Notes: Rfam assigns this 96-nucleotide RNA sequence from Propithecus coquereli to the family "Y RNA". The source organism's lineage runs through Eukaryota, Theria, Eutheria, Euarchontoglires and Propithecus. Rfam classes the family as a non-coding RNA gene. The match comes from Rfam's covariance-model search (57 bits). Pairs were carried over by alignment from the consensus structure, which is taken from published work.

RNA sequence: GGUUGGUCUGAUGGCAGUGGGCUAUCAGAACUUACUAACAUUAGUAUCACUCAAGUUGGUAUACAACCCCCUACUGCUAAAUUUGACUGGCUUAAA
Number, nucleotide and partner (000 for none) at each position: 001g092002g091003u090004u089005g088006g087007u086008c085009u000010g084011a083012u000013g000014g000015c000016a075017g074018u073019g072020g071021g070022c000023u000024a000025u000026c000027a000028g000029a000030a000031c000032u000033u061034a060035c059036u000037a057038a056039c000040a000041u000042u000043a000044g000045u000046a000047u000048c000049a000050c000051u000052c000053a000054a000055g000056u038057u037058g000059g035060u034061a033062u000063a000064c000065a000066a000067c000068c000069c000070c021071c020072u019073a018074c017075u016076g000077c000078u000079a000080a000081a000082u000083u011084u010085g008086a007087c006088u005089g004090g003091c002092u001093u000094a000095a000096a000